[Rfam]
RNA sequence: AAAGAAAAAUGGCAAACUUAUCGAAAGGUAGGGACGCAAAGCUAUAGGGACUAAAGGACAAUCCAAUGUCAGCCAGCUGCCUUA
Numbered sequence: 001a002a003a004g005a006a007a008a009a010u011g012g013c014a015a016a017c018u019u020a021u022c023g024a025a026a027g028g029u030a031g032g033g034a035c036g037c038a039a040a041g042c043u044a045u046a047g048g049g050a051c052u053a054a055a056g057g058a059c060a061a062u063c064c065a066a067u068g069u070c071a072g073c074c075a076g077c078u079g080c081c082u083u084a
Base pairs, nucleotide, nucleotide: 012037013036017032018031019030020029021028022027040078041077042076043075047074048073049070050069051068056064057063058062
RNA: c-di-GMP-I riboswitch aptamer